[Rfam]
RNA: c-di-GMP-I riboswitch aptamer
RNA sequence: CAAAUAUUUAGGCAAACUACGUGAAAACGUAGGACGCAAAGCUUGAGUCUAAGGCGAGUUCGCUAUGAUCGAUCGGCUGCAGUG
Numbered sequence: 001c002a003a004a005u006a007u008u009u010a011g012g013c014a015a016a017c018u019a020c021g022u023g024a025a026a027a028c029g030u031a032g033g034a035c036g037c038a039a040a041g042c043u044u045g046a047g048u049c050u051a052a053g054g055c056g057a058g059u060u061c062g063c064u065a066u067g068a069u070c071g072a073u074c075g076g077c078u079g080c081a082g083u084g
Base pairs, nucleotide, nucleotide: 012037013036017032018031019030020029021028022027040078041077042076043075045074046073047069048068049067054063055062056061